[Rfam]
RNA: Small nucleolar RNA SNORA63
RNA sequence: AAGCAGGAUUCAGACUACAACAUAGCUGUCAUGUGCUGUGUUGUUGUUCCCACUGCUCAGAUAAAGUGGUUUCCUAACUGUACCUGUCUGCUACACUCCUGUAGCAGCCAGGGACACUUGGUCUCAUACAU
Numbered sequence: 001a002a003g004c005a006g007g008a009u010u011c012a013g014a015c016u017a018c019a020a021c022a023u024a025g026c027u028g029u030c031a032u033g034u035g036c037u038g039u040g041u042u043g044u045u046g047u048u049c050c051c052a053c054u055g056c057u058c059a060g061a062u063a064a065a066g067u068g069g070u071u072u073c074c075u076a077a078c079u080g081u082a083c084c085u086g087u088c089u090g091c092u093a094c095a096c097u098c099c100u101g102u103a104g105c106a107g108c109c110a111g112g113g114a115c116a117c118u119u120g121g122u123c124u125c126a127u128a129c130a131u
Stems, first nucleotide, its partner, number of pairs: 003056004017044010083112004088107004